[Rfam]
Fluoride riboswitch aptamer (crcB RNA motif): a 74-nucleotide RNA sequence from Mycobacterium sherrisii.
The source organism's lineage runs through Bacteria, Bacillati, Mycobacteriales, Mycobacteriaceae and Mycobacterium simiae complex.
Rfam links the family to the GO terms response to fluoride and positive regulation of gene expression.
On this family, see Baker et al., Science 2012: "Widespread genetic switches and toxicity resistance proteins for fluoride".
RNA sequence: UGAUCGUGAGGCGAUGGAUCUCCGCCGGGGUAUUGCACCCGAACCGCCAACCGGCUGAUGGCUCCUUCGACGUC
Numbered sequence: 001u002g003a004u005c006g007u008g009a010g011g012c013g014a015u016g017g018a019u020c021u022c023c024g025c026c027g028g029g030g031u032a033u034u035g036c037a038c039c040c041g042a043a044c045c046g047c048c049a050a051c052c053g054g055c056u057g058a059u060g061g062c063u064c065c066u067u068c069g070a071c072g073u074c
Stems, first nucleotide, its partner, number of pairs: 010026004016065003020061002046055003